[Rfam]
RNA sequence: UGCCAGAGAAGUUGUAUAUUGGGCUACCAUCCAGUGAUGCAAUGGAGGCUUAUUAGGGUUGUCAGUUUUCCACAGGGUAGCAAUUAAAACUGUCUGA
Number, nucleotide and partner (000 for none) at each position: 001u000002g049003c048004c047005a000006g000007a000008g000009a000010a000011g043012u042013u041014g040015u039016a038017u037018a035019u034020u033021g032022g031023g000024c080025u079026a078027c077028c000029a000030u000031c022032c021033a020034g019035u018036g000037a017038u016039g015040c014041a013042a012043u011044g000045g000046a000047g004048g003049c002050u000051u000052a000053u000054u000055a000056g000057g000058g000059u000060u000061g000062u000063c092064a091065g090066u000067u000068u000069u000070c000071c000072a000073c000074a000075g000076g000077g027078u026079a025080g024081c000082a000083a000084u000085u000086a000087a000088a000089a000090c065091u064092g063093u000094c000095u000096g000097a000

A member of the RNA family "drum RNA", 97 nucleotides long. Rfam classes the family as a small RNA. Firmicutes, Bacteroidetes (1 example), Proteobacteria (2 examples), Spirochaetes (2 examples). The sequence is in the family's curated seed alignment. The family's consensus secondary structure is taken from published work.